This 143-nucleotide RNA sequence from Bacteroides helcogenes belongs to the Rfam family "GibS sRNA". Its family is annotated with regulation of gene expression in the Gene Ontology. It is one of the family's seed sequences. The organism belongs to Bacteroides helcogenes, within Bacteria. Rfam's curators write: A small RNA with a conserved region in the 5' region in gene clusters, related to carbon metabolism in Bacteroidetes.
RNA sequence: GUGUUUUUCAUAGUAUUAGAUAUAAGAUUAAUUAAAGGAGACGUACCCGCUUGUGACAAGUAAGUACAUCAAAAAACAGAAGCGUCUGUUUGAUUGAUAAAUGUGUAAAGAGCAUCGGUUUACCAGAGCCGAUGCUUUUUUUU
Number, nucleotide and partner (000 for none) at each position: 001g000002u000003g000004u000005u000006u000007u000008u000009c000010a000011u000012a000013g000014u000015a000016u000017u000018a000019g000020a000021u000022a000023u000024a000025a000026g000027a000028u000029u000030a000031a000032u000033u000034a000035a000036a000037g000038g000039a000040g000041a000042c000043g067044u066045a065046c064047c000048c000049g000050c060051u059052u058053g000054u000055g000056a000057c000058a052059a051060g050061u000062a000063a000064g046065u045066a044067c043068a000069u000070c000071a000072a000073a000074a000075a090076a089077c088078a087079g086080a085081a000082g000083c000084g000085u080086c079087u078088g077089u076090u075091u000092g000093a000094u000095u000096g000097a000098u000099a000100a000101a000102u000103g000104u000105g000106u000107a000108a000109a000110g137111a136112g135113c134114a133115u132116c131117g130118g129119u128120u127121u000122a000123c000124c000125a000126g000127a120128g119129c118130c117131g116132a115133u114134g113135c112136u111137u110138u000139u000140u000141u000142u000143u000